[Rfam]
RNA sequence: AGGGAAAAGACGAUGAUGUGUUUCCAAGCACAUAUCUGAUUUAUAUAUGUGGAUGACAGUCAAGUCAAGCUGAGUCUUUUCCGA
Numbered sequence: 001a002g003g004g005a006a007a008a009g010a011c012g013a014u015g016a017u018g019u020g021u022u023u024c025c026a027a028g029c030a031c032a033u034a035u036c037u038g039a040u041u042u043a044u045a046u047a048u049g050u051g052g053a054u055g056a057c058a059g060u061c062a063a064g065u066c067a068a069g070c071u072g073a074g075u076c077u078u079u080u081c082c083g084a
Base pairs, nucleotide, nucleotide: 003082004081005080006079008077009076010075011074

Small nucleolar RNA SNORD121A: an 84-nucleotide sequence from Neotoma lepida. Gene Ontology terms of the family: RNA processing and nucleolus. On this family, see Yang et al., Nucleic Acids Res 2006: "snoSeeker: an advanced computational package for screening of guide and orphan snoRNA genes in the human genome". The source organism's lineage runs through Eukaryota, Metazoa, Boreoeutheria, Muroidea and Neotoma. The match comes from Rfam's covariance-model search (60 bits).